[Rfam]
RNA: Fungal signal recognition particle RNA
Organism: Macrophomina phaseolina
RNA sequence: CGGCUGUAAUGGUCACAAUUCUGAGAGGUGCAUUGAAACCGUAGCCUCUUUCCCUUCUCUCGCCGAGACGAGGGCCCAGUUCGAAUCCGGUGGUGCUCGACCAACGCGCGCAGGUAACUCGCGAUGAAGGCGGGCCUAAGCAAUGAAGUCGACCGUCGAGGGAAGCAAUUCUGCAGACACGACUUCACCAUUGGAUGGCGGUGCUGGAUUACCCGCGUCUCGGUUUGGGAUAGGCGUUAUGGACUGAUGAAUCAACCAGGUACUCUU
Number, nucleotide and partner (000 for none) at each position: 001c000002g014003g013004c012005u000006g000007u000008a000009a000010u000011g000012g004013u003014c002015a000016c000017a000018a000019u000020u260021c259022u258023g257024a000025g000026a000027g253028g252029u251030g000031c249032a248033u247034u000035g000036a245037a000038a000039c242040c241041g240042u239043a238044g237045c236046c000047u234048c233049u232050u000051u230052c229053c228054c227055u000056u000057c000058u000059c000060u000061c000062g000063c223064c222065g221066a220067g219068a218069c217070g216071a000072g214073g213074g212075c000076c207077c206078a205079g204080u203081u201082c200083g199084a000085a196086u195087c194088c193089g192090g191091u190092g189093g188094u000095g000096c134097u133098c132099g131100a000101c129102c000103a000104a125105c000106g000107c123108g122109c121110g120111c000112a119113g118114g000115u000116a000117a000118c113119u112120c110121g109122c108123g107124a000125u104126g000127a000128a000129g101130g000131c099132g098133g097134g096135c000136c140137u000138a000139a000140g136141c000142a000143a000144u187145g186146a185147a184148g183149u182150c181151g000152a000153c000154c000155g178156u177157c176158g000159a000160g000161g000162g171163a170164a169165g000166c000167a000168a000169u164170u163171c162172u000173g000174c000175a000176g157177a156178c155179a000180c000181g150182a149183c148184u147185u146186c145187a144188c093189c092190a091191u090192u089193g088194g087195a086196u085197g000198g000199c083200g082201g081202u000203g080204c079205u078206g077207g076208a000209u000210u000211a000212c074213c073214c072215g000216c070217g069218u068219c067220u066221c065222g064223g063224u000225u000226u000227g054228g053229g052230a051231u000232a049233g048234g047235c000236g045237u044238u043239a042240u041241g040242g039243a000244c000245u036246g000247a033248u032249g031250a000251a029252u028253c027254a000255a000256c000257c023258a022259g021260g020261u000262a000263c000264u000265c000266u000267u000